Shown here is a 73-nucleotide RNA from Alectura lathami, a member of the family "Small nucleolar RNA SNORD66".
Rfam links the family to the GO terms nucleolus and RNA processing.
The family's RNA type in Rfam is C/D-box small nucleolar RNA.
The literature on the family includes a 2001 paper in EMBO J by Huttenhofer et al., "RNomics: an experimental approach that identifies 201 candidates for novel, small, non-messenger RNAs in mouse".
Rfam describes the family as follows. snoRNA HBII-142 is part of the C/D family of snoRNAs. It is the human orthologue of the mouse MBII-142 snoRNA and is predicted to guide 2'O-ribose methylation of small 18S rRNA at residue C1272.
RNA sequence: CUGUGAUGAUCAAGCCUUUGAGCCACUGUGUCUGGGCCACUGAUGUCUGUGAUGGAACUGAGGAUCUGAACAG
Numbered sequence: 001c002u003g004u005g006a007u008g009a010u011c012a013a014g015c016c017u018u019u020g021a022g023c024c025a026c027u028g029u030g031u032c033u034g035g036g037c038c039a040c041u042g043a044u045g046u047c048u049g050u051g052a053u054g055g056a057a058c059u060g061a062g063g064a065u066c067u068g069a070a071c072a073g
Stems, first nucleotide, its partner, number of pairs: 001073004
The match comes from Rfam's covariance-model search (63 bits).